[Rfam]
RNA sequence: UGGUCCUCUGCAGUGUGGAAGACUAGUGAUUUUGUUGUUCUAGAUUACAGAAUUGACAACGAAUCACGGUCUACCUCACUGCACCGUGAC
Number, nucleotide and partner (000 for none) at each position: 001u000002g000003g090004u089005c088006c000007u000008c000009u083010g000011c081012a080013g079014u078015g077016u000017g075018g074019a000020a072021g071022a070023c069024u068025a000026g067027u066028g065029a064030u063031u062032u061033u000034g060035u059036u058037g057038u056039u055040c000041u000042a000043g000044a000045u000046u000047a000048c000049a000050g000051a000052a000053u000054u000055g039056a038057c037058a036059a035060c034061g032062a031063a030064u029065c028066a027067c026068g024069g023070u022071c021072u020073a000074c018075c017076u000077c015078a014079c013080u012081g011082c000083a009084c000085c000086g000087u000088g005089a004090c003